[Rfam]
RNA sequence: UUGUACCAACCAUGAUGAAAUAAUUUCGGAUGUAAACGGGUCUAAAGGAUUCGAGUGUCCGAGAGCGCAUAAAACCAUGUGGAUGCUUCCGUUGCCUUCCUUCUGACCUUUAAC
Numbered sequence: 001u002u003g004u005a006c007c008a009a010c011c012a013u014g015a016u017g018a019a020a021u022a023a024u025u026u027c028g029g030a031u032g033u034a035a036a037c038g039g040g041u042c043u044a045a046a047g048g049a050u051u052c053g054a055g056u057g058u059c060c061g062a063g064a065g066c067g068c069a070u071a072a073a074a075c076c077a078u079g080u081g082g083a084u085g086c087u088u089c090c091g092u093u094g095c096c097u098u099c100c101u102u103c104u105g106a107c108c109u110u111u112a113a114c
Base pairs, nucleotide, nucleotide: 004112005111027091028090029089030088
The family of this 114-nucleotide RNA from Piloderma croceum is "Small nucleolar RNA Z13/snr52". The family's consensus secondary structure was predicted with PFOLD. The source organism's lineage runs through Eukaryota, Basidiomycota, Agaricomycetidae, Atheliales and Piloderma croceum.